[Rfam]
RNA sequence: GGGGCGAGCGCAGGAUCCUGUGCUGUGUCCCCAGCACCCUGGGAUCCGGGGCCUGCGCCACUGGAAUCAUGAUCCUGGGGCCAUGCAGCCCCCU
Numbered sequence: 001g002g003g004g005c006g007a008g009c010g011c012a013g014g015a016u017c018c019u020g021u022g023c024u025g026u027g028u029c030c031c032c033a034g035c036a037c038c039c040u041g042g043g044a045u046c047c048g049g050g051g052c053c054u055g056c057g058c059c060a061c062u063g064g065a066a067u068c069a070u071g072a073u074c075c076u077g078g079g080g081c082c083a084u085g086c087a088g089c090c091c092c093c094u
Stems, first nucleotide, its partner, number of pairs: 001094004006089001010086002013082002017078002020075001022073001024071004028065002031063001034058002037055001041053001043052001045050001
The family of this 94-nucleotide sequence from Canis lupus is "mir-8799 microRNA precursor family".
Its family is annotated with RISC complex and miRNA-mediated post-transcriptional gene silencing in the Gene Ontology.